[Rfam]
Nucleotides: 065
Stems, first nucleotide, its partner, number of pairs: 030049006
Number, partner (000 for none) and nucleotide at each position: 001000u002000c003000c004000c005000u006000a007000u008000g009000a010000g011000g012000a013000a014000g015000a016000u017000a018000u019000c020000c021000c022000a023000u024000g025000u026000a027000u028000a029000g030049g031048a032047a033046g034045u035044g036000c037000c038000g039000u040000a041000u042000g043000a044035c045034a046033c047032u048031u049030u050000a051000a052000a053000c054000c055000g056000c057000a058000g059000g060000g061000g062000a063000g064000c065000a
This 65-nucleotide sequence from Nyssa sinensis belongs to the Rfam family "Small nucleolar RNA U49". The source organism's lineage runs through Eukaryota, Streptophyta, Tracheophyta, asterids and Nyssa. A reference for the family is Brown et al. (2001), "Multiple snoRNA gene clusters from Arabidopsis", RNA. By type it is a C/D-box small nucleolar RNA.